RNA sequence: UUGGCAUGGUGAGGAAAAGAGAUUGAUGUCUGAUCUACAUGACGAGCAAUUCCUCCUACUCAUUCUGA
Numbered sequence: 001u002u003g004g005c006a007u008g009g010u011g012a013g014g015a016a017a018a019g020a021g022a023u024u025g026a027u028g029u030c031u032g033a034u035c036u037a038c039a040u041g042a043c044g045a046g047c048a049a050u051u052c053c054u055c056c057u058a059c060u061c062a063u064u065c066u067g068a
Base pairs, nucleotide, nucleotide: 006063007062008061009060027046030041
Overview:
The family of this 68-nucleotide RNA sequence from Brachypodium distachyon is "Small nucleolar RNA Z105". Rfam 15.1 lists 621 matches to the family in 204 species. For this family Rfam cites "The high diversity of snoRNAs in plants: identification and comparative study of 120 snoRNA genes from Oryza sativa" (Chen et al., Nucleic Acids Res, 2003). The base pairs follow the family's consensus structure, which was predicted with CMfinder. It is annotated as a C/D-box small nucleolar RNA.